[Rfam]
RNA sequence: GAAGGCUGUCUGACCCAGCCUGAUGAACAUAACCUGCCCAAUGACGCCUCGGCGACGAGGAUGAGAGGGUGUUCCCUAUGGGAACCUCCGUCCUUUAGAGCGGAGAGGAGGUCAGCACGAAGUAACC
Numbered sequence: 001g002a003a004g005g006c007u008g009u010c011u012g013a014c015c016c017a018g019c020c021u022g023a024u025g026a027a028c029a030u031a032a033c034c035u036g037c038c039c040a041a042u043g044a045c046g047c048c049u050c051g052g053c054g055a056c057g058a059g060g061a062u063g064a065g066a067g068g069g070u071g072u073u074c075c076c077u078a079u080g081g082g083a084a085c086c087u088c089c090g091u092c093c094u095u096u097a098g099a100g101c102g103g104a105g106a107g108g109a110g111g112u113c114a115g116c117a118c119g120a121a122g123u124a125a126c127c
Stems, first nucleotide, its partner, number of pairs: 003021006036070004047060005071085005086105006093098001
A member of the RNA family "HgcC family RNA" from Methanotorris igneus, 127 nucleotides long. Pairs were carried over by alignment from the consensus structure, which was predicted with RNAalifold. From the family's description: The HgcC ncRNA gene was identified computationally in AT-rich hyperthermophiles. The genes were named hgcA through hgcG ('high GC'). HgcC is of unknown function. Two other homologues were detected called HhcA and HhcB after 'homologue of hgcC'. This family contains a large number of putative archaeal matches to the 3' end of the known ncRNAs. Many of these partly overlap coding regions. On this family, see Klein et al., Proc Natl Acad Sci U S A 2002: "Noncoding RNA genes identified in AT-rich hyperthermophiles".